[Rfam]
RNA sequence: CAUUGGAUCCCGCGCGGCGCGCAUCCUGUGAACUCCCCAGGGCCGGAAGGCAGCAGGGUCAACGGGCUCUGCCGGGUGCGCGGGGUCCUCUAUUU
Numbered sequence: 001c002a003u004u005g006g007a008u009c010c011c012g013c014g015c016g017g018c019g020c021g022c023a024u025c026c027u028g029u030g031a032a033c034u035c036c037c038c039a040g041g042g043c044c045g046g047a048a049g050g051c052a053g054c055a056g057g058g059u060c061a062a063c064g065g066g067c068u069c070u071g072c073c074g075g076g077u078g079c080g081c082g083g084g085g086u087c088c089u090c091u092a093u094u095u
Stems, first nucleotide, its partner, number of pairs: 005088010015076001018074002021072003025066005035058003042051003
RNA: Bacterial small signal recognition particle RNA